[Rfam]
RNA: Small nucleolar RNA SNORD22
RNA sequence: UCCCGAUGAAGAAACAUGUACACGUCUUACCUCCUGUCCUGGUCCCAGAGCCUGUAAAGGUGAACCCACUGGGGCUGGCUGGGGGAGAGGAGGAGAGCUUGUUCCAGAAGGAACAGUCUGAGGGAU
Numbered sequence: 001u002c003c004c005g006a007u008g009a010a011g012a013a014a015c016a017u018g019u020a021c022a023c024g025u026c027u028u029a030c031c032u033c034c035u036g037u038c039c040u041g042g043u044c045c046c047a048g049a050g051c052c053u054g055u056a057a058a059g060g061u062g063a064a065c066c067c068a069c070u071g072g073g074g075c076u077g078g079c080u081g082g083g084g085g086a087g088a089g090g091a092g093g094a095g096a097g098c099u100u101g102u103u104c105c106a107g108a109a110g111g112a113a114c115a116g117u118c119u120g121a122g123g124g125a126u
Stems, first nucleotide, its partner, number of pairs: 001125004